[Rfam]
RNA sequence: UGCGCCGUCAUUGGGGAGUAGCCGGUUUCUGGGGAGUCAUAACCAGAAACGCCCGUAUCAACAUACUCGUUUCGUCAGCGAAACGUGGUGCGGGCAGCCAGGUAGGUUGGCGAGACCAUAGGCACGUAACUCCGUCGUAUGGUUGGGGGUGGGUUACGUGUAUAUGGAGCCACCCGGCCGA
Numbered sequence: 001u002g003c004g005c006c007g008u009c010a011u012u013g014g015g016g017a018g019u020a021g022c023c024g025g026u027u028u029c030u031g032g033g034g035a036g037u038c039a040u041a042a043c044c045a046g047a048a049a050c051g052c053c054c055g056u057a058u059c060a061a062c063a064u065a066c067u068c069g070u071u072u073c074g075u076c077a078g079c080g081a082a083a084c085g086u087g088g089u090g091c092g093g094g095c096a097g098c099c100a101g102g103u104a105g106g107u108u109g110g111c112g113a114g115a116c117c118a119u120a121g122g123c124a125c126g127u128a129a130c131u132c133c134g135u136c137g138u139a140u141g142g143u144u145g146g147g148g149g150u151g152g153g154u155u156a157c158g159u160g161u162a163u164a165u166g167g168a169g170c171c172a173c174c175c176g177g178c179c180g181a
Base pairs, nucleotide, nucleotide: 025050026049027048028047029046030045031044032043051095052094053093054092055091056090057089058088059087060086068085069084070083071082072081073080074079

The family of this 181-nucleotide sequence from Serratia fonticola is "Manganese Mn2+ riboswitch aptamer (yybP-ykoY)". Gene Ontology term of the family: manganese ion binding. NCBI's taxonomy places the organism under Bacteria, Pseudomonadota, Gammaproteobacteria, Yersiniaceae, Serratia. The match comes from Rfam's covariance-model search (59 bits). This RNA was originally discovered in E. coli during a large scale screen and was named SraF. The family was later found to exist upstream of related families of protein genes in many bacteria, including the the yybP and ykoK genes in B. subtilis. The specific functions of these proteins are unknown, but this structured RNA element may be involved in their genetic regulation as a riboswitch.